[Rfam]
RNA sequence: GGAGGCCAAUGAUGACUAGUAUUGCCUACAUUGUCAGAUUUGUCUUAAUUAUGAUAAGAGUAACCUUAGUUCUGAGGCCUCU
Number, nucleotide and partner (000 for none) at each position: 001g082002g081003a000004g079005g078006c077007c076008a000009a000010u000011g000012a000013u000014g000015a000016c000017u000018a000019g000020u000021a000022u000023u000024g000025c000026c000027u000028a000029c000030a000031u000032u000033g000034u000035c000036a000037g000038a000039u000040u000041u000042g000043u000044c000045u000046u000047a000048a000049u000050u000051a000052u000053g000054a000055u000056a000057a000058g000059a000060g000061u000062a000063a000064c000065c000066u000067u000068a000069g000070u000071u000072c000073u000074g000075a000076g007077g006078c005079c004080u000081c002082u001